The record is a 282-nucleotide sequence from Scytalidium sp. 3C, which matches "Fungal signal recognition particle RNA" in Rfam. For this family Rfam cites "Prediction of signal recognition particle RNA genes" (Regalia et al., Nucleic Acids Res, 2002). The base pairs follow the family's consensus structure, which is taken from published work. The source organism's lineage runs through Eukaryota, Opisthokonta, saccharomyceta, leotiomyceta and Scytalidium. Its Rfam clan is "SRP clan".
[Rfam]
RNA sequence: CGGCUGUAAUGGUCAUAAUUCGAGAAGGCCUCACCAUCUCGCAACUGCCUUAUCCAUUUCUGUCGCAAGACAACCAUCAGCAGUGCCCGGCUCGAACAUGGCGGUGGUUCCCCACUCGUGCGGGUAACCCACGAUCGCUGGUGGAGCCCUAAGCAAUUGAAGAACACUUCUUGAGGGAGGCCUCACUCUGCAGAGAGAUCUUCACCGUGAUGUGGCGGCGCCGGAUUACAUUCGCUGUGUGGUUUGGAUGGGGUGUGCGAGCUGAGUGUCGACUUUAUUCUU
Numbered sequence: 001c002g003g004c005u006g007u008a009a010u011g012g013u014c015a016u017a018a019u020u021c022g023a024g025a026a027g028g029c030c031u032c033a034c035c036a037u038c039u040c041g042c043a044a045c046u047g048c049c050u051u052a053u054c055c056a057u058u059u060c061u062g063u064c065g066c067a068a069g070a071c072a073a074c075c076a077u078c079a080g081c082a083g084u085g086c087c088c089g090g091c092u093c094g095a096a097c098a099u100g101g102c103g104g105u106g107g108u109u110c111c112c113c114a115c116u117c118g119u120g121c122g123g124g125u126a127a128c129c130c131a132c133g134a135u136c137g138c139u140g141g142u143g144g145a146g147c148c149c150u151a152a153g154c155a156a157u158u159g160a161a162g163a164a165c166a167c168u169u170c171u172u173g174a175g176g177g178a179g180g181c182c183u184c185a186c187u188c189u190g191c192a193g194a195g196a197g198a199u200c201u202u203c204a205c206c207g208u209g210a211u212g213u214g215g216c217g218g219c220g221c222c223g224g225a226u227u228a229c230a231u232u233c234g235c236u237g238u239g240u241g242g243u244u245u246g247g248a249u250g251g252g253g254u255g256u257g258c259g260a261g262c263u264g265a266g267u268g269u270c271g272a273c274u275u276u277a278u279u280c281u282u
Stems, first nucleotide, its partner, number of pairs: 002014003018279001020277001022275003028270001030268001032266001034264001036263001038261002046255010062071003075241003078237004083231003087224005092218003096213004101208004106148001108146004112141003116134005122129002149153001158204006168197005177188003
Dot-bracket structure: .(((.......)))...(.(.(((...(.(.(.(.(.((......((((((((((......(((....)))...(((((((.(((.((((((((.((((.((((.(.(((((((.(((((.((....)))))))....))).)))).)(...)....((((((....(((((....(((......)))....))))).)))))))))).))))..))).)))))....)))..)))).)))....))))))))))....)).)).).).)..))).).)...